[Rfam]
RNA sequence: GCAAUCUGAAACUGGCGCGCGAAAACCGGACCGUCUUUCUUAGCCUGCUUGGCAUUUCCUGGUUGUGGUUUGUCGGCGCGACAUUUCUGUCGUCGUUCUUCCGUUUCGCGAAGGACGUGCUG
Numbered sequence: 001g002c003a004a005u006c007u008g009a010a011a012c013u014g015g016c017g018c019g020c021g022a023a024a025a026c027c028g029g030a031c032c033g034u035c036u037u038u039c040u041u042a043g044c045c046u047g048c049u050u051g052g053c054a055u056u057u058c059c060u061g062g063u064u065g066u067g068g069u070u071u072g073u074c075g076g077c078g079c080g081a082c083a084u085u086u087c088u089g090u091c092g093u094c095g096u097u098c099u100u101c102c103g104u105u106u107c108g109c110g111a112a113g114g115a116c117g118u119g120c121u122g
Stems, first nucleotide, its partner, number of pairs: 010049001012047001014045002019040001021038003025034002051121005057115004067099002071095002074092005080087002
RNA: Burkholderia RNA 11
Organism: Paraburkholderia diazotrophica